[Rfam]
RNA sequence: AUCAAGGAUGAUGAAAUCAGAAAAAUCUUAGGACACCUUCUGACGCAAUUGCUGCGUAUGAGAACAUAAUAAUUUCUGAUCUUGAU
Numbered sequence: 001a002u003c004a005a006g007g008a009u010g011a012u013g014a015a016a017u018c019a020g021a022a023a024a025a026u027c028u029u030a031g032g033a034c035a036c037c038u039u040c041u042g043a044c045g046c047a048a049u050u051g052c053u054g055c056g057u058a059u060g061a062g063a064a065c066a067u068a069a070u071a072a073u074u075u076c077u078g079a080u081c082u083u084g085a086u
Stems, first nucleotide, its partner, number of pairs: 001086007041047002

Rfam assigns this 86-nucleotide RNA from Cuscuta campestris to the family "Small nucleolar RNA snoR31/Z110/Z27". Rfam's curators write: This family contains several related snoRNAs including R31, Z27 and Z110. On this family, see Barneche et al., J Mol Biol 2001: "Identification of 66 box C/D snoRNAs in Arabidopsis thaliana: extensive gene duplications generated multiple isoforms predicting new ribosomal RNA 2'-O-methylation sites". Rfam links the family to the GO terms RNA processing and nucleolus. It is annotated as a C/D-box small nucleolar RNA.